[Rfam]
This 108-nucleotide RNA from Pseudoclavibacter sp. RFBA6 belongs to the Rfam family "TPP riboswitch aptamer (THI element)". Pairs were carried over by alignment from the consensus structure, which is taken from published work. Lineage of the source: Bacteria > Bacillati > Micrococcales > Microbacteriaceae > Pseudoclavibacter.
RNA sequence: GUGGCCGUGCACGGGAGCCCGAUGAGUCGGGCUGAGAGGGAGUACUCGAACUCCGACCGUUGAACCUGAUCUGGGUAAUGCCAGCGAAGGGAGUCGACUCACCCGUGC
Numbered sequence: 001g002u003g004g005c006c007g008u009g010c011a012c013g014g015g016a017g018c019c020c021g022a023u024g025a026g027u028c029g030g031g032c033u034g035a036g037a038g039g040g041a042g043u044a045c046u047c048g049a050a051c052u053c054c055g056a057c058c059g060u061u062g063a064a065c066c067u068g069a070u071c072u073g074g075g076u077a078a079u080g081c082c083a084g085c086g087a088a089g090g091g092a093g094u095c096g097a098c099u100c101a102c103c104c105g106u107g108c
Stems, first nucleotide, its partner, number of pairs: 009094002011060004017032005039054005065090003071084004